This 167-nucleotide RNA sequence from Amphibacillus xylanus belongs to the Rfam family "M-box riboswitch aptamer (ykoK leader)". The base pairs follow the family's consensus structure. Rfam describes the family as follows. M-box riboswitch, also know as ykoK leader is described as a metaloregulatory RNA that sense divalent metals and function as a genetic control element of genes related to divalent metal transport in bacteria. The literature on the family includes a 2007 paper in Cell by Dann CE 3rd et al., "Structure and mechanism of a metal-sensing regulatory RNA". A search with the family's covariance model found it, with a score of 151 bits.
[Rfam]
RNA sequence: AAGAACCUUCGUUAGGCCAGGCUCCUGUGUGGAGAUACGCUGCUGCCCAAAAAUGUCCAAAGACGCCAAUGGGUCAACAGAAACAAUCGAAUUAAGGUUGUUUUUAACGUAGCUGAAAUUAAUUUUCUAUGCCACACAGUGCUAAAGCUCUACGAUUGAGGGUUAUA
Numbered sequence: 001a002a003g004a005a006c007c008u009u010c011g012u013u014a015g016g017c018c019a020g021g022c023u024c025c026u027g028u029g030u031g032g033a034g035a036u037a038c039g040c041u042g043c044u045g046c047c048c049a050a051a052a053a054u055g056u057c058c059a060a061a062g063a064c065g066c067c068a069a070u071g072g073g074u075c076a077a078c079a080g081a082a083a084c085a086a087u088c089g090a091a092u093u094a095a096g097g098u099u100g101u102u103u104u105u106a107a108c109g110u111a112g113c114u115g116a117a118a119u120u121a122a123u124u125u126u127c128u129a130u131g132c133c134a135c136a137c138a139g140u141g142c143u144a145a146a147g148c149u150c151u152a153c154g155a156u157u158g159a160g161g162g163u164u165a166u167a
Base pairs, nucleotide, nucleotide: 005163006162007161008160009159010158011153012152013095015149016148017147020143021142022141025139026138027137028136029135030134031133032132039113040112041111042110043109045074046073047072048071049070054065055064056063057062080104081103082102083101086098087097088096115127116126117125